[Rfam]
RNA sequence: UUAGGGGUAGGGAUAAUAACGUCAAGGGUCGACGGAACGGAAUGUGAACGUCGAUUGAAGGACCUCCGUCAUAGGUUCGCGCUAUUAUUCCGCAUUCACCAAA
Numbered sequence: 001u002u003a004g005g006g007g008u009a010g011g012g013a014u015a016a017u018a019a020c021g022u023c024a025a026g027g028g029u030c031g032a033c034g035g036a037a038c039g040g041a042a043u044g045u046g047a048a049c050g051u052c053g054a055u056u057g058a059a060g061g062a063c064c065u066c067c068g069u070c071a072u073a074g075g076u077u078c079g080c081g082c083u084a085u086u087a088u089u090c091c092g093c094a095u096u097c098a099c100c101a102a103a
Base pairs, nucleotide, nucleotide: 001103002102004100005099010091011090012089013088014087015086016085017084018083020081021080022079026056027055029054030053031052032051033050034049040097041096042095043094044093060078061077062076063075064074065073

Notes: The record is a 103-nucleotide RNA from Ligilactobacillus pobuzihii, which matches "THF (Tetrahydrofolate) riboswitch aptamer" in Rfam. About the family: Tetrahydrofolate (THF) riboswitch was first reported for Ames et al. as an RNA motif in 5' untranslated (5'-UTR)regions of folate transport and biosynthesis genes in Firmicutes genomes. The match comes from Rfam's covariance-model search (56 bits). The literature on the family includes a 2010 paper in Chem Biol by Ames et al., "A eubacterial riboswitch class that senses the coenzyme tetrahydrofolate".